A member of the RNA family "Drosophila small cajal body-specific RNA PsiU2-35.45" from Drosophila melanogaster, 140 nucleotides long. Rfam classes the family as a small Cajal body RNA. The organism belongs to Sophophora, within Eukaryota. The family's consensus secondary structure was predicted with RNAfold. Rfam links the family to the GO terms nucleolus, RNA processing and Cajal body. For this family Rfam cites "Novel small Cajal-body-specific RNAs identified in Drosophila: probing guide RNA function" (Deryusheva and Gall, RNA, 2013).
[Rfam]
RNA sequence: AAACGUGUUCGGAUACCGCUGUAGAGAUAAGAGACUGUAGCUCUAUGGCCACCAAGAGCACGGAUAACAAAAACAAUGUAUUCUUCGAUGAGCCUGCCUGAAUGAGUUUCAAAGCAGGCACAGAUACGGAAUAUACAAUA
Numbered sequence: 001a002a003a004c005g006u007g008u009u010c011g012g013a014u015a016c017c018g019c020u021g022u023a024g025a026g027a028u029a030a031g032a033g034a035c036u037g038u039a040g041c042u043c044u045a046u047g048g049c050c051a052c053c054a055a056g057a058g059c060a061c062g063g064a065u066a067a068c069a070a071a072a073a074c075a076a077u078g079u080a081u082u083c084u085u086c087g088a089u090g091a092g093c094c095u096g097c098c099u100g101a102a103u104g105a106g107u108u109u110c111a112a113a114g115c116a117g118g119c120a121c122a123g124a125u126a127c128g129g130a131a132u133a134u135a136c137a138a139u140a
Stems, first nucleotide, its partner, number of pairs: 004062007018049009030036002077135008089122002092119006099111004